[Rfam]
RNA sequence: GCUUAUUCUCAGGGCAGGGUGCAAAUCCCGACCGGCGGUAAACCAGUUUUCUGGUAAGCCCGCGAGCGCCCAAAGGUCGCAAGACUUUUGGGGUCAGCAGAUCUGGUGAGAUUCCGGAGCCGACGGUAAUAGUCCGGAUGGGAGAGGAUAAAG
Numbered sequence: 001g002c003u004u005a006u007u008c009u010c011a012g013g014g015c016a017g018g019g020u021g022c023a024a025a026u027c028c029c030g031a032c033c034g035g036c037g038g039u040a041a042a043c044c045a046g047u048u049u050u051c052u053g054g055u056a057a058g059c060c061c062g063c064g065a066g067c068g069c070c071c072a073a074a075g076g077u078c079g080c081a082a083g084a085c086u087u088u089u090g091g092g093g094u095c096a097g098c099a100g101a102u103c104u105g106g107u108g109a110g111a112u113u114c115c116g117g118a119g120c121c122g123a124c125g126g127u128a129a130u131a132g133u134c135c136g137g138a139u140g141g142g143a144g145a146g147g148a149u150a151a152a153g
Base pairs, nucleotide, nucleotide: 003151004150005149006148007147008146009145010144017029018028019027031133032132033122034121035063036062037061038060058120059119066098067097102118103117104116105115106114124136125135126134
The record is a 153-nucleotide RNA sequence from Thalassospira sp. HJ, which matches "FMN riboswitch aptamer (RFN element)" in Rfam. The RFN element is a highly conserved domain that is found frequently in the 5'-untranslated regions of prokaryotic mRNAs that encode for flavin mononucleotide (FMN) biosynthesis and transport proteins. The source organism's lineage runs through Bacteria, Pseudomonadati, Pseudomonadota, Alphaproteobacteria and Thalassospira.